This 90-nucleotide RNA from Chaetura pelagica belongs to the Rfam family "Small nucleolar RNA SNORD70".
The family has 21 seed sequences and 1,085 matches in Rfam 15.1.
snoRNA HBII-234 belongs to the C/D family of snoRNAs. It is the human orthologue of the mouse MBII-234 and is predicted to guide 2'O-ribose methylation of the small 18S rRNA on position A512. It is hosted, together with HBII-95, by the core C/D box snoRNA protein encoding gene NOP5/NOP58.
NCBI's taxonomy places the organism under Eukaryota, Archelosauria, Coelurosauria, Apodidae, Chaetura.
On this family, see Huttenhofer et al., EMBO J 2001: "RNomics: an experimental approach that identifies 201 candidates for novel, small, non-messenger RNAs in mouse".
The base pairs follow the family's consensus structure.
[Rfam]
RNA sequence: GUAGCCUGUUGUCAAUGAUGGAUUCUUGUUGAAGCUGAAUGUAACUGAUUUGAGUCAACAUUUCGUCACUACCACUGAGACAACAGUUAC
Numbered sequence: 001g002u003a004g005c006c007u008g009u010u011g012u013c014a015a016u017g018a019u020g021g022a023u024u025c026u027u028g029u030u031g032a033a034g035c036u037g038a039a040u041g042u043a044a045c046u047g048a049u050u051u052g053a054g055u056c057a058a059c060a061u062u063u064c065g066u067c068a069c070u071a072c073c074a075c076u077g078a079g080a081c082a083a084c085a086g087u088u089a090c
Stems, first nucleotide, its partner, number of pairs: 001090004006086008